[Rfam]
RNA: Guanidine-II riboswitch aptamer (mini-ykkC)
Organism: Ectopseudomonas mendocina
RNA sequence: CACCACGGACGACCGUGGCACAUGACGAAUGACGGCGGGACGGCCCGC
Dot-bracket structure: ..((((((....))))))................(((((....)))))